[Rfam]
RNA: c-di-GMP-I riboswitch aptamer
Organism: Evansella caseinilytica
RNA sequence: AAAUAAAUAGGGCAAACCUACGGAAACGUAGUGACGCAAAGCUAUAGGGGCUAAAGCACUAUGCUAAGCCAGCCAGCUGCCGUU
Numbered sequence: 001a002a003a004u005a006a007a008u009a010g011g012g013c014a015a016a017c018c019u020a021c022g023g024a025a026a027c028g029u030a031g032u033g034a035c036g037c038a039a040a041g042c043u044a045u046a047g048g049g050g051c052u053a054a055a056g057c058a059c060u061a062u063g064c065u066a067a068g069c070c071a072g073c074c075a076g077c078u079g080c081c082g083u084u
Stems, first nucleotide, its partner, number of pairs: 012037002018031005040078004047074002049070003056064003